Shown here is a 63-nucleotide RNA from Ancylobacter tetraedralis, a member of the family "terC RNA".
RNA sequence: UACCCGAUCCGGGCCCCUCUGACGCGAGCCUCGCCGGCGUUCGUGUGAUGUCGGAUCUAGCCU
Numbered sequence: 001u002a003c004c005c006g007a008u009c010c011g012g013g014c015c016c017c018u019c020u021g022a023c024g025c026g027a028g029c030c031u032c033g034c035c036g037g038c039g040u041u042c043g044u045g046u047g048a049u050g051u052c053g054g055a056u057c058u059a060g061c062c063u
Base pairs, nucleotide, nucleotide: 006057007056008055009054010053011052012051022046023045024044025043026042027041028040029039

Lineage of the source: Bacteria > Pseudomonadati > Pseudomonadota > Hyphomicrobiales > Ancylobacter. A search with the family's covariance model found it, with a score of 52 bits. The family's consensus secondary structure is taken from published work.